[Rfam]
RNA sequence: GCUGGCUGGCUUAGGGGACCGGCUGUAACCCUACUUUGGGGGGCUUAGAUGGCGAACGAUGUAUCGGGUGGGACUCACUGCUGGGUGGUCCUGAGUUCAGGCGUUGUCUCAACAUGCCGAUUGUCGACAAGCGCCGAUAUGGGUAACCCAUCGGUGCUGGUUGUUAGAGAGGGGCCCACCAGGCCAGGCAGGAAACUGAGCAACCCAUAGCCCCCGCAGUCUUCAGUGUUGAGAUCACAGUGCUGUCAGGCUGCCACGCAGCCCAUUCGAGAAACUGAACGCCACCUUUU
Dot-bracket structure: (((((((((.(.....).))))))....(((.......))))))..((.(((((......((.(((((((((.....((((..(((((.(((((.(...(((((((((((((((((..((((((((((.(((((((((..((....)).))))))))).))))(...)..(((((......((.....(((....))).....))....))))).))))))..)).)))))))...)))))))))))))))))))..)))))))))))))...))....))))).))...

Shown here is a 290-nucleotide sequence from Hypsibius exemplaris, a member of the family "Metazoan signal recognition particle RNA". Gene Ontology terms of the family: SRP-dependent cotranslational protein targeting to membrane, signal sequence recognition and signal recognition particle, endoplasmic reticulum targeting. For this family Rfam cites "Towards the structure of the mammalian signal recognition particle" (Wild et al., Curr Opin Struct Biol, 2002). The family's RNA type in Rfam is non-coding RNA gene. About the family: The signal recognition particle (SRP) is a universally conserved ribonucleoprotein. Clan: SRP clan.